RNA sequence: UGCGUCUGCCCAUUCUCGGGGCGUUUCCUCCCUAGACUUCAAGGCCGCGGUUCUUCCGCGGCCUUUUUUCUUUGCCCGG
Numbered sequence: 001u002g003c004g005u006c007u008g009c010c011c012a013u014u015c016u017c018g019g020g021g022c023g024u025u026u027c028c029u030c031c032c033u034a035g036a037c038u039u040c041a042a043g044g045c046c047g048c049g050g051u052u053c054u055u056c057c058g059c060g061g062c063c064u065u066u067u068u069u070c071u072u073u074g075c076c077c078g079g
Stems, first nucleotide, its partner, number of pairs: 008022004042064009
The record is a 79-nucleotide RNA sequence from Azospirillum doebereinerae, which matches "Makes More Granules Regulator RNA (mmgR)" in Rfam. The pairing is the family consensus, mapped onto this sequence.